[Rfam]
RNA sequence: GCCUCUGUGGCGGAAUUGGUAGACGCGCCGGAUUCAAAAUCCGGUUCUGGCAACAGAGUGAGAGUUCGAUUCUCUCCGGAGGCA
Numbered sequence: 001g002c003c004u005c006u007g008u009g010g011c012g013g014a015a016u017u018g019g020u021a022g023a024c025g026c027g028c029c030g031g032a033u034u035c036a037a038a039a040u041c042c043g044g045u046u047c048u049g050g051c052a053a054c055a056g057a058g059u060g061a062g063a064g065u066u067c068g069a070u071u072c073u074c075u076c077c078g079g080a081g082g083c084a
Stems, first nucleotide, its partner, number of pairs: 001083007010026003028044005060076005
The family of this 84-nucleotide RNA from Ostreibacterium oceani is "tRNA".
Transfer RNA (tRNA) molecules are approximately 80 nucleotides in length.
The source organism's lineage runs through Bacteria, Pseudomonadati, Gammaproteobacteria, Ostreibacteriaceae and Ostreibacterium.
Rfam classes the family as a transfer RNA.